[Rfam]
Rfam assigns this 67-nucleotide RNA sequence from Myroides odoratus to the family "S15-Flavobacteria ribosomal protein leader". It is one of the family's seed sequences. The source organism's lineage runs through Bacteria, Pseudomonadati, Bacteroidota, Flavobacteriales and Myroides odoratus.
RNA sequence: UAACUUUGCAAUUGAAUUUUAGAGAACUAGAAUUCGUACAUAAAAAUCAUUAAAGAAUAUUGGCAUG
Numbered sequence: 001u002a003a004c005u006u007u008g009c010a011a012u013u014g015a016a017u018u019u020u021a022g023a024g025a026a027c028u029a030g031a032a033u034u035c036g037u038a039c040a041u042a043a044a045a046a047u048c049a050u051u052a053a054a055g056a057a058u059a060u061u062g063g064c065a066u067g
Stems, first nucleotide, its partner, number of pairs: 014035008